[Rfam]
RNA: Small nucleolar RNA snoR97
Organism: Artemisia annua
RNA sequence: AUUAUUUAACGGGCUUGGAGUCUGAAAUAACUCACAGACUAAUGUGUUGUCUAUCAGCUUCUUCUUUUGUAACAUUAACGAGACAGGAGUUAAAUAACAGCACAACAUUU
Numbered sequence: 001a002u003u004a005u006u007u008a009a010c011g012g013g014c015u016u017g018g019a020g021u022c023u024g025a026a027a028u029a030a031c032u033c034a035c036a037g038a039c040u041a042a043u044g045u046g047u048u049g050u051c052u053a054u055c056a057g058c059u060u061c062u063u064c065u066u067u068u069g070u071a072a073c074a075u076u077a078a079c080g081a082g083a084c085a086g087g088a089g090u091u092a093a094a095u096a097a098c099a100g101c102a103c104a105a106c107a108u109u110u
Base pairs, nucleotide, nucleotide: 043104044103045102046101047100048099049098056091057090058089059088060087061086063083064082065081066080